The family of this 108-nucleotide sequence from Arachis hypogaea is "Plant small nucleolar RNA R71". The organism belongs to Arachis, within Eukaryota. The match comes from Rfam's covariance-model search (44 bits). Rfam links the family to the GO terms nucleolus and RNA processing.

RNA sequence: AAACAUGUUCGGAGGGCAUUGCCUGGUCAGCAGCUUGUAUCUCUCCCAGGCUUUAUAGAGGGUCUCACCAUCUUUCUGUCUAAAGGUCUAAACCUCCACCCUUAGCUU
Number, nucleotide and partner (000 for none) at each position: 001a108002a000003a000004c105005a102006u000007g000008u000009u000010c000011g000012g000013a000014g000015g000016g000017c000018a000019u000020u000021g000022c000023c000024u000025g000026g000027u000028c000029a000030g000031c000032a000033g000034c000035u000036u000037g000038u000039a000040u000041c000042u000043c000044u000045c000046c000047c000048a000049g000050g000051c000052u000053u000054u000055a000056u000057a000058g075059a074060g000061g072062g000063u000064c000065u000066c000067a000068c000069c000070a000071u000072c061073u000074u059075u058076c000077u000078g000079u000080c000081u000082a000083a000084a000085g000086g000087u000088c000089u000090a000091a000092a000093c000094c000095u000096c000097c000098a000099c000100c000101c000102u005103u000104a000105g004106c000107u000108u001